[Rfam]
Rfam assigns this 124-nucleotide sequence from Caenorhabditis latens to the family "Caenorhabditis snoRNA ceN86". Taxonomically the source falls in Caenorhabditis (Eukaryota, Bilateria, Rhabditina, Rhabditomorpha).
RNA sequence: AUGCAACGUAGUUCGAGAGGUUACUCCCGUGAGGAAUCAAUCUAUUGAACGUUGCGAAAUAAACUUGGCCUUUAUUCCCGCUCCUGAAUAUUGUUUCUUGCGCGAUGAUGCGGUCAUUACAAUU
Numbered sequence: 001a002u003g004c005a006a007c008g009u010a011g012u013u014c015g016a017g018a019g020g021u022u023a024c025u026c027c028c029g030u031g032a033g034g035a036a037u038c039a040a041u042c043u044a045u046u047g048a049a050c051g052u053u054g055c056g057a058a059a060u061a062a063a064c065u066u067g068g069c070c071u072u073u074a075u076u077c078c079c080g081c082u083c084c085u086g087a088a089u090a091u092u093g094u095u096u097c098u099u100g101c102g103c104g105a106u107g108a109u110g111c112g113g114u115c116a117u118u119a120c121a122a123u124u
Stems, first nucleotide, its partner, number of pairs: 003055003013047001015045001017043001021036002024033003066116002069113002073110004079104003083100001086097003